[Rfam]
RNA sequence: GGGCGGAUAAGGCGUCCACGCCGCAUCCGCCAGUGGCGCGGUGCAGAUGCCGGAUGCGACGCUUGUCGCGUCUUAUCCGACC
Number, nucleotide and partner (000 for none) at each position: 001g000002g031003g030004c029005g028006g027007a026008u025009a000010a000011g022012g021013c020014g019015u000016c000017c000018a000019c014020g013021c012022c011023g000024c000025a008026u007027c006028c005029g004030c003031c002032a000033g000034u000035g000036g000037c000038g000039c000040g000041g000042u000043g000044c000045a000046g000047a000048u000049g081050c000051c079052g078053g077054a076055u075056g074057c000058g072059a071060c070061g069062c068063u000064u000065g000066u000067c000068g062069c061070g060071u059072c058073u000074u056075a055076u054077c053078c052079g051080a000081c049082c000

The record is an 82-nucleotide RNA sequence from Escherichia coli, which matches "Nucleoid-associated noncoding RNA 4 (CssrE)" in Rfam. The literature on the family includes a 2015 paper in MBio by Qian et al., "A New Noncoding RNA Arranges Bacterial Chromosome Organization". In E. coli small RNA transcribed from repeated extragenic palindromic element (REP325) called nucleoid-associated ncRNA 4 (nRNA4) collaborates HU protein in condensing the DNA. The secondary structure but not the sequence of the RNA is important in nucleoid condensation. Also identified in Shigella as CssrE. By type it is a small RNA. NCBI's taxonomy places the organism under Bacteria, Pseudomonadati, Enterobacteriaceae, Escherichia, Escherichia coli.